[Rfam]
RNA: MIR2619 microRNA precursor family
RNA sequence: AAAACGCUUCCUAAUUUUUGCAACUGUAACAGUUUUGUCCCCCAAAAUCAAUUUAUGUUAAAAAAUAUAUAUAAUACGUGGCACCUCACAUAGACUGCCACGUCAACGUAUACCGAGUCAACAUUGACAUUGGGGGCCAAAACUGCCACAGAUGCAAAACUUAGGGGGCGUUUU
Numbered sequence: 001a002a003a004a005c006g007c008u009u010c011c012u013a014a015u016u017u018u019u020g021c022a023a024c025u026g027u028a029a030c031a032g033u034u035u036u037g038u039c040c041c042c043c044a045a046a047a048u049c050a051a052u053u054u055a056u057g058u059u060a061a062a063a064a065a066u067a068u069a070u071a072u073a074a075u076a077c078g079u080g081g082c083a084c085c086u087c088a089c090a091u092a093g094a095c096u097g098c099c100a101c102g103u104c105a106a107c108g109u110a111u112a113c114c115g116a117g118u119c120a121a122c123a124u125u126g127a128c129a130u131u132g133g134g135g136g137c138c139a140a141a142a143c144u145g146c147c148a149c150a151g152a153u154g155c156a157a158a159a160c161u162u163a164g165g166g167g168g169c170g171u172u173u174u
Stems, first nucleotide, its partner, number of pairs: 001174002004171005012163003016159007024151004030145008039136007076103002079100005